[Rfam]
RNA sequence: GGAUAUGAGGGAUGGUCACCUGGCUGUGGGAUCUGAUAUGCCACUGAUUGCACAGGUUGAUCUGACUGAUCUGUCUAGCUUAGGCAGGUGUUCCCUCUCUUCCUAACAUUCCAUAUAUGUUCCUCUUAAUGAUGUGUGCUUGGUUAACGAGUAGAACCUCCCCAACAGACUAUUGUUCAUUGGUCAAAGGAGUGUGGUAGCUGUGCUCCACUGCUGGAAGCUCUAAGUAAGCUCAAAGUCCAUUUGUAGAUAAGUGUAGGGUAAUCAAGUGCCCAAUACUGAAGACACAUCCAGAUGAGAAGCUGCAUGCAUCAGUCUGCUAGUGGCU
Numbered sequence: 001g002g003a004u005a006u007g008a009g010g011g012a013u014g015g016u017c018a019c020c021u022g023g024c025u026g027u028g029g030g031a032u033c034u035g036a037u038a039u040g041c042c043a044c045u046g047a048u049u050g051c052a053c054a055g056g057u058u059g060a061u062c063u064g065a066c067u068g069a070u071c072u073g074u075c076u077a078g079c080u081u082a083g084g085c086a087g088g089u090g091u092u093c094c095c096u097c098u099c100u101u102c103c104u105a106a107c108a109u110u111c112c113a114u115a116u117a118u119g120u121u122c123c124u125c126u127u128a129a130u131g132a133u134g135u136g137u138g139c140u141u142g143g144u145u146a147a148c149g150a151g152u153a154g155a156a157c158c159u160c161c162c163c164a165a166c167a168g169a170c171u172a173u174u175g176u177u178c179a180u181u182g183g184u185c186a187a188a189g190g191a192g193u194g195u196g197g198u199a200g201c202u203g204u205g206c207u208c209c210a211c212u213g214c215u216g217g218a219a220g221c222u223c224u225a226a227g228u229a230a231g232c233u234c235a236a237a238g239u240c241c242a243u244u245u246g247u248a249g250a251u252a253a254g255u256g257u258a259g260g261g262u263a264a265u266c267a268a269g270u271g272c273c274c275a276a277u278a279c280u281g282a283a284g285a286c287a288c289a290u291c292c293a294g295a296u297g298a299g300a301a302g303c304u305g306c307a308u309g310c311a312u313c314a315g316u317c318u319g320c321u322a323g324u325g326g327c328u
Stems, first nucleotide, its partner, number of pairs: 001112003006106001008104003012101001014098002022095002028092002031089005037083001039078001042073002046071004050066001124169002126143004131139001144165002151161001153159001200270003207263001209261001211259004222250003227247005293328002299321001302316004
The family of this 328-nucleotide RNA from Molothrus ater is "7SK RNA". On this family, see Blencowe, Curr Biol 2002: "Transcription: surprising role for an elusive small nuclear RNA". Rfam's curators write: 7SK was discovered as an abundant small nuclear RNA in the mid-70s but a possible function has only recently been suggested. Two independent studies have found that 7SK RNA binds the CDK9/cyclin T complex (known as elongation factor P-TEFb). P-TEFb activates transcription by phosphorylating the C-terminal domain of RNA polymerase II. This process is negatively regulated by the 7SK RNP. The secondary structure of 7SK RNA shown here was proposed by Wasserman and Steitz on the basis of chemical modification and enzymatic cleavage experiments. This family contains a number of annotated pseudogenes and 7SK derived repeats. The threshold is artificially high to minimise the pseudogene count.